[Rfam]
RNA sequence: CCGCACGCGUCGGGAGAGCGCGCUGGCUUCGUUGCAAUGCACCUAAGCAUCAAGGGCAUUGAGCAACACAACGCCGCGCCGCCGAAGGGGCACACCCGCAAACUCUCAGGCAAAAGGACCGACCGCGUCGA
Numbered sequence: 001c002c003g004c005a006c007g008c009g010u011c012g013g014g015a016g017a018g019c020g021c022g023c024u025g026g027c028u029u030c031g032u033u034g035c036a037a038u039g040c041a042c043c044u045a046a047g048c049a050u051c052a053a054g055g056g057c058a059u060u061g062a063g064c065a066a067c068a069c070a071a072c073g074c075c076g077c078g079c080c081g082c083c084g085a086a087g088g089g090g091c092a093c094a095c096c097c098g099c100a101a102a103c104u105c106u107c108a109g110g111c112a113a114a115a116g117g118a119c120c121g122a123c124c125g126c127g128u129c130g131a
Base pairs, nucleotide, nucleotide: 006127007126008125009123010122011121012120013119020079021078022077023076081111082110083109084107085106088105089104090103
The family of this 131-nucleotide RNA sequence from Paraburkholderia solisilvae is "Glycine riboswitch aptamer". Pairs were carried over by alignment from the consensus structure.